This 77-nucleotide RNA sequence from Croceibacterium xixiisoli belongs to the Rfam family "Makes More Granules Regulator RNA (mmgR)". By type it is a small RNA. SuhB later renamed mmgR (makes more granules regulator) was a putative non-coding RNA found multiple times in the Agrobacterium tumefaciens genome and related alpha-proteobacteria. The match comes from Rfam's covariance-model search (56 bits).
RNA sequence: GGAACGUGCCUUUCAGGCAUCCUCUCCCAAAACUUCCAGGCCUGGCCGGCAACGGCCAGGCCUUUUUUCUUGCCCCA
Number, nucleotide and partner (000 for none) at each position: 001g000002g000003a000004a000005c000006g000007u000008g018009c017010c016011u015012u000013u000014c000015a011016g010017g009018c008019a000020u000021c000022c000023u000024c000025u000026c000027c000028c000029a000030a000031a000032a000033c000034u000035u000036c000037c000038a000039g062040g061041c060042c059043u058044g057045g056046c055047c054048g000049g000050c000051a000052a000053c000054g047055g046056c045057c044058a043059g042060g041061c040062c039063u000064u000065u000066u000067u000068u000069c000070u000071u000072g000073c000074c000075c000076c000077a000